[Rfam]
Rfam assigns this 137-nucleotide RNA from Desulfosporosinus youngiae to the family "pan motif".

RNA sequence: CAGACAAUAUCGUUUCCGAAUUGUACUGGAUUUAGGUAGGAAUUAUAGCUGUUAUGCGGCAAGAUUAUGGGAAAAGUGCAUACUAUCUUAUCCUGAUUUAAAUACCGCUUGGAUCGUUUGGUGACCGAGACGGGGGA
Dot-bracket structure: ((((((((.((......))))))).)))............................................................................((((((((.(((.....)))))))).)))....

Overview
It scores 39 bits against the family's covariance model. Pairs were carried over by alignment from the consensus structure, which is taken from published work.